The family of this 69-nucleotide sequence from Strongylocentrotus purpuratus is "tRNA". Clan: tRNA clan. Pairs were carried over by alignment from the consensus structure, which is taken from published work.

RNA sequence: AAAGAGUUAGUUUAAGGAGAACCUCUGAUUUCGGCUCAGAUGGUUUUGGUUCAACCCCAAAACUCUUGA
Numbered sequence: 001a002a003a004g005a006g007u008u009a010g011u012u013u014a015a016g017g018a019g020a021a022c023c024u025c026u027g028a029u030u031u032c033g034g035c036u037c038a039g040a041u042g043g044u045u046u047u048g049g050u051u052c053a054a055c056c057c058c059a060a061a062a063c064u065c066u067u068g069a
Stems, first nucleotide, its partner, number of pairs: 002067006010022004024040005045061005